RNA sequence: CGACCCCGCGCGGGAGAGUCCGGGUCAGAACACUGAGCCCGGCGCCGAAGGAGCAAGUCCUCCCCGGAACCUCUCAGGCACAAAGGACCGCGUGGGUCAG
Numbered sequence: 001c002g003a004c005c006c007c008g009c010g011c012g013g014g015a016g017a018g019u020c021c022g023g024g025u026c027a028g029a030a031c032a033c034u035g036a037g038c039c040c041g042g043c044g045c046c047g048a049a050g051g052a053g054c055a056a057g058u059c060c061u062c063c064c065c066g067g068a069a070c071c072u073c074u075c076a077g078g079c080a081c082a083a084a085g086g087a088c089c090g091c092g093u094g095g096g097u098c099a100g
Stems, first nucleotide, its partner, number of pairs: 006095008020042006044079003047075002051073003

The record is a 100-nucleotide RNA from Amycolatopsis xylanica, which matches "Glycine riboswitch aptamer" in Rfam.
Its family is annotated with glycine biosynthetic process in the Gene Ontology.
Taxonomically the source falls in Amycolatopsis (Bacteria, Bacillati, Actinomycetes, Pseudonocardiaceae).
This family represents the bacterial glycine riboswitch.